[Rfam]
The record is a 161-nucleotide sequence from Aureibacillus halotolerans, which matches "glmS glucosamine-6-phosphate activated ribozyme aptamer" in Rfam. Lineage of the source: Bacteria > Bacillota > Caryophanales > Bacillaceae > Aureibacillus. The literature on the family includes a 2004 paper in Nature by Winkler et al., "Control of gene expression by a natural metabolite-responsive ribozyme". Rfam describes the family as follows. This entry contains a glucosamine-6-phosphate activated ribozyme that is found in the mRNA for GlmS. GlmS is an enzyme that uses fructose-6-phosphate and glutamine to generate glucosamine-6-phosphate. The ribozyme catalyses self cleavage of the glmS mRNA that is thought to regulate GlmS activity. It is annotated as a riboswitch. The match comes from Rfam's covariance-model search (132 bits).
RNA sequence: UAGUUUCAUAAAGCGCCUGAACUAAACGGAAGGUUUAGUUGACGAGGAGGAGGAUCAUCGAGCAUCGGCGGAUGCCUCCCGGCCGUAGUAGCUUCGGUCGUUAAGAUUGUGUUCAAAACAGAGAGGUGACUCUUUGAACAAAAACACAAUCACAAGCUUUC
Numbered sequence: 001u002a003g004u005u006u007c008a009u010a011a012a013g014c015g016c017c018u019g020a021a022c023u024a025a026a027c028g029g030a031a032g033g034u035u036u037a038g039u040u041g042a043c044g045a046g047g048a049g050g051a052g053g054a055u056c057a058u059c060g061a062g063c064a065u066c067g068g069c070g071g072a073u074g075c076c077u078c079c080c081g082g083c084c085g086u087a088g089u090a091g092c093u094u095c096g097g098u099c100g101u102u103a104a105g106a107u108u109g110u111g112u113u114c115a116a117a118a119c120a121g122a123g124a125g126g127u128g129a130c131u132c133u134u135u136g137a138a139c140a141a142a143a144a145c146a147c148a149a150u151c152a153c154a155a156g157c158u159u160u161c
Stems, first nucleotide, its partner, number of pairs: 020040008049079005058068004080100006105151007119136007